[Rfam]
Nucleotides: 069
Base pairs, nucleotide, nucleotide: 011042012041013040014039015038018031019030020029021028022027046065047064048063049062050061051060053058
Number, partner (000 for none) and nucleotide at each position: 001000g002000a003000a004000g005000u006000g007000c008000g009000a010000a011042c012041c013040a014039a015038g016000c017000a018031g019030u020029c021028a022027c023000c024000a025000c026000g027022g028021u029020g030019g031018c032000a033000u034000g035000a036000g037000c038015c039014u040013u041012g042011g043000a044000g045000c046065g047064g048063a049062c050061g051060g052000c053058c054000g055000c056000a057000a058053g059000a060051c061050c062049g063048u064047c065046c066000u067000g068000c069000a